[Rfam]
RNA sequence: UUCACGUUGAGACCAGAAACAACUUUAAAAACUGAGAGUAUUCUGAAAAUCUUUAAGAGUAAGAACAAAA
Numbered sequence: 001u002u003c004a005c006g007u008u009g010a011g012a013c014c015a016g017a018a019a020c021a022a023c024u025u026u027a028a029a030a031a032c033u034g035a036g037a038g039u040a041u042u043c044u045g046a047a048a049a050u051c052u053u054u055a056a057g058a059g060u061a062a063g064a065a066c067a068a069a070a
Stems, first nucleotide, its partner, number of pairs: 006023004035052003042064002
Dot-bracket structure: .....((((..........))))...........(((....[[......)))..........]]......
Annotation
DUF805 RNA: a 70-nucleotide RNA sequence. The family is grouped with related families in Rfam's "DUF805 clan". Pairs were carried over by alignment from the consensus structure, which is taken from published work.